THF (Tetrahydrofolate) riboswitch aptamer: a 94-nucleotide RNA from Alkalibacter rhizosphaerae. Gene Ontology term of the family: tetrahydrofolate metabolic process. The family's consensus secondary structure is taken from published work. Tetrahydrofolate (THF) riboswitch was first reported for Ames et al. as an RNA motif in 5' untranslated (5'-UTR)regions of folate transport and biosynthesis genes in Firmicutes genomes. A search with the family's covariance model found it, with a score of 77 bits.
Nucleotides: 094
Stems, first nucleotide, its partner, number of pairs: 002093004010082007018074001019072003025054002028052007038088003042084001058069004
Number, partner (000 for none) and nucleotide at each position: 001000u002093g003092c004091a005090g006000a007000g008000u009000a010082g011081a012080c013079a014078a015077g016076a017000u018074g019072c020071g021070u022000u023000a024000a025054g026053u027000g028052u029051u030050a031049a032048g033047g034046g035000a036000u037000g038088g039087g040086a041000u042084g043000u044000u045000g046034c047033c048032c049031u050030u051029a052028a053026a054025c055000g056000a057000a058069g059068g060067a061066u062000g063000a064000a065000a066061g067060u068059c069058c070021a071020c072019g073000a074018u075000c076016u077015c078014u079013u080012g081011u082010c083000g084042c085000u086040u087039c088038c089000g090005c091004u092003g093002u094000u